[Rfam]
RNA sequence: GGACGAGCCUCUGGAGAGACUCAUAGGAGCACCGAAGGGGAAAGCCAUGUAUUUUGGUCAAACUCUCAGGUAAAAGGACAGGGGAUUUUUG
Numbered sequence: 001g002g003a004c005g006a007g008c009c010u011c012u013g014g015a016g017a018g019a020c021u022c023a024u025a026g027g028a029g030c031a032c033c034g035a036a037g038g039g040g041a042a043a044g045c046c047a048u049g050u051a052u053u054u055u056g057g058u059c060a061a062a063c064u065c066u067c068a069g070g071u072a073a074a075a076g077g078a079c080a081g082g083g084g085a086u087u088u089u090u091g
Stems, first nucleotide, its partner, number of pairs: 006086001008084006020029003031071003034067002038065003044058004
The family of this 91-nucleotide sequence from Alkaliphilus metalliredigens is "Glycine riboswitch aptamer". About the family: This family represents the bacterial glycine riboswitch.